[Rfam]
RNA sequence: GUUUUUUAGGGCAUUUCUAGGGUCCUUUAGGGCAUAAGGACCCUAGAAAUCACUGAGAAGGCAUGAGGAUGCAGUACUCCCUGUCUGCAUUAUUUCCGUCUCCUGAUAUUCAGCAUGAAUAGUUGCAGUGGAAAAC
Numbered sequence: 001g002u003u004u005u006u007u008a009g010g011g012c013a014u015u016u017c018u019a020g021g022g023u024c025c026u027u028u029a030g031g032g033c034a035u036a037a038g039g040a041c042c043c044u045a046g047a048a049a050u051c052a053c054u055g056a057g058a059a060g061g062c063a064u065g066a067g068g069a070u071g072c073a074g075u076a077c078u079c080c081c082u083g084u085c086u087g088c089a090u091u092a093u094u095u096c097c098g099u100c101u102c103c104u105g106a107u108a109u110u111c112a113g114c115a116u117g118a119a120u121a122g123u124u125g126c127a128g129u130g131g132a133a134a135a136c
Base pairs, nucleotide, nucleotide: 003059004058005057006056007055008054009053011051017046018045019044020043021042022041023040024039025038026037027036070130071129072128074126075125085113086112087111
Rfam assigns this 136-nucleotide RNA from Corvus brachyrhynchos to the family "Small nucleolar RNA SNORA49".
Lineage of the source: Eukaryota > Dipnotetrapodomorpha > Amniota > Coelurosauria > Corvus.
The family's RNA type in Rfam is H/ACA-box small nucleolar RNA.
Rfam's curators write: The snoRNA ACA49 has no identified RNA target.
It scores 35 bits against the family's covariance model.